The family of this 91-nucleotide RNA from Dioscorea zingiberensis is "mir-160 microRNA precursor family". It scores 50 bits against the family's covariance model. Rfam links the family to the GO terms RISC complex and miRNA-mediated post-transcriptional gene silencing. Pairs were carried over by alignment from the consensus structure, which was predicted with PFOLD. The family has 7 seed sequences and 1,502 matches in Rfam 15.1.

[Rfam]
RNA sequence: AUCUGCCUGGCUCCCUGCAUGCCAUAUAGCAUGGCCUGGUACAUUAAUAGAGUGCCGGCAUUCUACUUGGCGUGAUGGGAGCCAAGCAGAU
Dot-bracket structure: ((((((.(((((((...(((((((..(((.................................)))..)))))))...))))))).))))))